mir-86 microRNA precursor family: a 78-nucleotide RNA sequence from Pristionchus pacificus. The family's consensus secondary structure was predicted with RNAalifold. For this family Rfam cites "An abundant class of tiny RNAs with probable regulatory roles in Caenorhabditis elegans" (Lau et al., Science, 2001). Rfam 15.1 lists 60 matches to the family in 60 species. The organism belongs to Pristionchus, within Eukaryota.
RNA sequence: AUGCCGGCUAAGUGAAUUUCUUGCCACAGUCUUAGCCUAAUUCACAAGGCUGGGCAAUACUUUCGCUUGCGCCGGCUA
Numbered sequence: 001a002u003g004c005c006g007g008c009u010a011a012g013u014g015a016a017u018u019u020c021u022u023g024c025c026a027c028a029g030u031c032u033u034a035g036c037c038u039a040a041u042u043c044a045c046a047a048g049g050c051u052g053g054g055c056a057a058u059a060c061u062u063u064c065g066c067u068u069g070c071g072c073c074g075g076c077u078a
Stems, first nucleotide, its partner, number of pairs: 004075003009069008021057001023055003027052003